Rfam assigns this 150-nucleotide RNA from Gordonia sihwensis to the family "FMN riboswitch aptamer (RFN element)".
The base pairs follow the family's consensus structure, which is taken from published work.
RNA sequence: UUGAGUUCUCGGGGCGGGGUGAAAUUCCCCACCGGCGGUGAUGCCCUCCAAGGGAUGAGCCCGCGAGCGCCCUCGCGACAGCGAGGGGACGAGCAGACUCCGGUGCGAUUCCGGGGCCGACGGUCAGAGUCCGGAUACGAGAGAAUGGCA
Numbered sequence: 001u002u003g004a005g006u007u008c009u010c011g012g013g014g015c016g017g018g019g020u021g022a023a024a025u026u027c028c029c030c031a032c033c034g035g036c037g038g039u040g041a042u043g044c045c046c047u048c049c050a051a052g053g054g055a056u057g058a059g060c061c062c063g064c065g066a067g068c069g070c071c072c073u074c075g076c077g078a079c080a081g082c083g084a085g086g087g088g089a090c091g092a093g094c095a096g097a098c099u100c101c102g103g104u105g106c107g108a109u110u111c112c113g114g115g116g117c118c119g120a121c122g123g124u125c126a127g128a129g130u131c132c133g134g135a136u137a138c139g140a141g142a143g144a145a146u147g148g149c150a
Stems, first nucleotide, its partner, number of pairs: 005146006017029003031130002033119002035064004059117002067094002099115005121133003
Dot-bracket structure: ....((((((......(((.......))).[[((((((....................[[))))..((........................))....(((((.......)))))]])).(((.....]]))).......))))))....